[Rfam]
About this RNA: This 387-nucleotide sequence from Fusarium venenatum belongs to the Rfam family "Group I catalytic intron". A search with the family's covariance model found it, with a score of 78 bits.
RNA sequence: UUACAGAGUCAGUCAAUACAUUGACUUUGAGAGAGCAACGUCUCUUAAGAGGGUAAAGCGGCGUAAAAGACGACCGCUAGUAGGAUGAACUGUUAUUCUUUCAAUGGUUCAGACUGCGACACCGUCAAAUUGCGGGGAGUUCCUAAAGCUUGCACUACUAAGCGGUCCUUGAAAUAGGGUCGUGGCCGGGGUAAUGACCUAGGGUACAGUAAAAACGUGCAAGAUGUAACAAUGGAUAAUCCGCAGCCAAGCUCUAAGUCUGCCUUGAAGAGUCAGAUAUGGGUGUAGUUCAACGACUAAAUAAAUAGUGGUGGGUUCCGGUAGAAACGCGGUUUGCGUACUCUGCCCGGGCUUAAGAUAUAAUCUGGCCUUCUGUGAAAGCAGGAG
Numbered sequence: 001u002u003a004c005a006g007a008g009u010c011a012g013u014c015a016a017u018a019c020a021u022u023g024a025c026u027u028u029g030a031g032a033g034a035g036c037a038a039c040g041u042c043u044c045u046u047a048a049g050a051g052g053g054u055a056a057a058g059c060g061g062c063g064u065a066a067a068a069g070a071c072g073a074c075c076g077c078u079a080g081u082a083g084g085a086u087g088a089a090c091u092g093u094u095a096u097u098c099u100u101u102c103a104a105u106g107g108u109u110c111a112g113a114c115u116g117c118g119a120c121a122c123c124g125u126c127a128a129a130u131u132g133c134g135g136g137g138a139g140u141u142c143c144u145a146a147a148g149c150u151u152g153c154a155c156u157a158c159u160a161a162g163c164g165g166u167c168c169u170u171g172a173a174a175u176a177g178g179g180u181c182g183u184g185g186c187c188g189g190g191g192u193a194a195u196g197a198c199c200u201a202g203g204g205u206a207c208a209g210u211a212a213a214a215a216c217g218u219g220c221a222a223g224a225u226g227u228a229a230c231a232a233u234g235g236a237u238a239a240u241c242c243g244c245a246g247c248c249a250a251g252c253u254c255u256a257a258g259u260c261u262g263c264c265u266u267g268a269a270g271a272g273u274c275a276g277a278u279a280u281g282g283g284u285g286u287a288g289u290u291c292a293a294c295g296a297c298u299a300a301a302u303a304a305a306u307a308g309u310g311g312u313g314g315g316u317u318c319c320g321g322u323a324g325a326a327a328c329g330c331g332g333u334u335u336g337c338g339u340a341c342u343c344u345g346c347c348c349g350g351g352c353u354u355a356a357g358a359u360a361u362a363a364u365c366u367g368g369c370c371u372u373c374u375g376u377g378a379a380a381g382c383a384g385g386a387g
Stems, first nucleotide, its partner, number of pairs: 005028009033043001120313005127306001131245006141236003246289002251284004259277004293366001295365002298362002315352004320347006372385005